Background: mir-8/mir-141/mir-200 microRNA precursor family: a 67-nucleotide RNA sequence from Phocoena sinus. NCBI's taxonomy places the organism under Eukaryota, Eumetazoa, Chordata, Teleostomi, Phocoena. The family has 164 seed sequences and 2,669 matches in Rfam 15.1. A search with the family's covariance model found it, with a score of 69 bits. Gene Ontology terms of the family: miRNA-mediated post-transcriptional gene silencing and RISC complex. Pairs were carried over by alignment from the consensus structure, which was predicted with RNAalifold. For this family Rfam cites "Identification of novel genes coding for small expressed RNAs" (Lagos-Quintana et al., Science, 2001).

[Rfam]
RNA sequence: AUCGCCAUCUUACUGGGCAGCAUUGGAUGGUGCCUGGUCUCUAAUACUGCCUGGUAAUGAUGACGGU
Number, nucleotide and partner (000 for none) at each position: 001a000002u066003c065004g064005c000006c062007a061008u060009c059010u057011u056012a055013c054014u053015g052016g051017g050018c049019a048020g047021c000022a045023u044024u043025g042026g041027a040028u000029g000030g000031u000032g000033c000034c000035u000036g000037g000038u000039c000040u027041c026042u025043a024044a023045u022046a000047c020048u019049g018050c017051c016052u015053g014054g013055u012056a011057a010058u000059g009060a008061u007062g006063a000064c004065g003066g002067u000